This 85-nucleotide RNA from Streptomyces sporangiiformans belongs to the Rfam family "ZMP/ZTP riboswitch aptamer (pfl RNA motif)". A search with the family's covariance model found it, with a score of 60 bits. Lineage of the source: Bacteria > Bacillati > Actinomycetes > Kitasatosporales > Streptomyces.
RNA sequence: AGGCCCGGCCGCGACUGGCGUGGGUGGAUGACCACCGGGGAGCGGUCGUGAUCCGACGCGAGCGUCGACCGCCUGGGCGCCUUUC
Numbered sequence: 001a002g003g004c005c006c007g008g009c010c011g012c013g014a015c016u017g018g019c020g021u022g023g024g025u026g027g028a029u030g031a032c033c034a035c036c037g038g039g040g041a042g043c044g045g046u047c048g049u050g051a052u053c054c055g056a057c058g059c060g061a062g063c064g065u066c067g068a069c070c071g072c073c074u075g076g077g078c079g080c081c082u083u084u085c
Stems, first nucleotide, its partner, number of pairs: 004050001006048007015039002017073004024035004062080005